[Rfam]
Burkholderia RNA 11: a 122-nucleotide RNA from Ramlibacter aurantiacus. From the family's description: Co-purified with Hfq, expression confirmed by Northern blot. Predicted target marZ. Overlaps coding sequence. The source organism's lineage runs through Bacteria, Pseudomonadati, Pseudomonadota, Betaproteobacteria and Ramlibacter. A search with the family's covariance model found it, with a score of 82 bits. The literature on the family includes a 2013 paper in Genomics by Ramos et al., "Experimental identification of small non-coding regulatory RNAs in the opportunistic human pathogen Burkholderia cenocepacia J2315".

RNA sequence: GCAACCUGCAGCUCGCGCACGAGCAGAUCGUGGUCUUUCGGUCGGUGCUGGGGAUCAGCUGGAUGUGGUUCUUCGGCGCCGUGUUCCUUAGCCAGUUCCCUGCAUUCGCCAAGGAGGUCCUG
Dot-bracket structure: .........(((.(..((..(((.(........).)))..))..).))).(((((...((.((((.((..((.(.(....(....)..).)..))..))...)))....).))...))))).